[Rfam]
The family of this 98-nucleotide sequence from Medicago truncatula is "MIR2587 microRNA precursor family".
Nucleotides: 098
Stems, first nucleotide, its partner, number of pairs: 001098006008090004013085003017081001019079006026073003029069010042056001
Number, partner (000 for none) and nucleotide at each position: 001098g002097u003096g004095u005094u006093a007000u008090g009089g010088u011087c012000a013085u014084u015083g016000a017081u018000g019079a020078c021077c022076g023075u024074u025000c026073a027072u028071a029069g030068a031067a032066c033065c034064c035063u036062g037061c038060a039000a040000u041000u042056g043000c044000a045000a046000u047000g048000c049000a050000u051000u052000g053000c054000a055000g056042c057000u058000u059000g060038u061037g062036u063035g064034g065033g066032g067031u068030u069029c070000a071028u072027a073026u074024a075023a076022c077021g078020g079019u080000a081017a082000c083015c084014a085013g086000a087011g088010a089009c090008c091000c092000u093006u094005g095004a096003c097002a098001u
Pairs were carried over by alignment from the consensus structure, which was predicted with RNAalifold.